The record is an 81-nucleotide sequence, which matches "let-7 microRNA precursor family" in Rfam. A reference for the family is Ambros (2001), "microRNAs: tiny regulators with great potential", Cell. The family is grouped with related families in Rfam's "let-7 microRNA precursor clan". It is one of the family's seed sequences. Rfam links the family to the GO terms miRNA-mediated post-transcriptional gene silencing and RISC complex. Rfam's curators write: This family represents the microRNAs (miRNA) let-7 and mir-98. let-7 was identified from a study of developmental timing in C. elegans, and was later shown to be part of a much larger class of non-coding RNAs termed miRNAs.
[Rfam]
RNA sequence: UGGGAUGAGGUAGUAGGUUGUAUAGUUUUAGGGUCACACCCACCACUGGGAGAUAACUAUACAAUCUACUGUCUUUCCUAA
Numbered sequence: 001u002g003g004g005a006u007g008a009g010g011u012a013g014u015a016g017g018u019u020g021u022a023u024a025g026u027u028u029u030a031g032g033g034u035c036a037c038a039c040c041c042a043c044c045a046c047u048g049g050g051a052g053a054u055a056a057c058u059a060u061a062c063a064a065u066c067u068a069c070u071g072u073c074u075u076u077c078c079u080a081a
Stems, first nucleotide, its partner, number of pairs: 001080005007075020031041004